[Rfam]
RNA sequence: GCAUGGCUGAAUACUGUGUUCUUUUGUCAGUAGUUUACACAGCCAGACACCAUGCAAAAGUAAAAGCUUCCCUUGGAAAUCAUUUUGGUAUGCUGAGUUUUUCUUAGCAUAUCAUUAUUGAAAGUGAAUACAAAU
Numbered sequence: 001g002c003a004u005g006g007c008u009g010a011a012u013a014c015u016g017u018g019u020u021c022u023u024u025u026g027u028c029a030g031u032a033g034u035u036u037a038c039a040c041a042g043c044c045a046g047a048c049a050c051c052a053u054g055c056a057a058a059a060g061u062a063a064a065a066g067c068u069u070c071c072c073u074u075g076g077a078a079a080u081c082a083u084u085u086u087g088g089u090a091u092g093c094u095g096a097g098u099u100u101u102u103c104u105u106a107g108c109a110u111a112u113c114a115u116u117a118u119u120g121a122a123a124g125u126g127a128a129u130a131c132a133a134a135u
Stems, first nucleotide, its partner, number of pairs: 001055006014042006068128003071124001073122002076119002083117001086114010
RNA: Small nucleolar RNA SNORA15